[Rfam]
RNA sequence: GCCGGUCCUCGGUAGUGGCCCCCGGGGCAACGCCCGGGAGCUUCGAUCGAAGACCGGC
Numbered sequence: 001g002c003c004g005g006u007c008c009u010c011g012g013u014a015g016u017g018g019c020c021c022c023c024g025g026g027g028c029a030a031c032g033c034c035c036g037g038g039a040g041c042u043u044c045g046a047u048c049g050a051a052g053a054c055c056g057g058c
Base pairs, nucleotide, nucleotide: 001058002057003056004055005054006053007052009050010049011048012047013046017042018041019040021038022037023036024035025034026033
RNA: Actino-pnp RNA
Organism: Streptomyces sp. SirexAA-E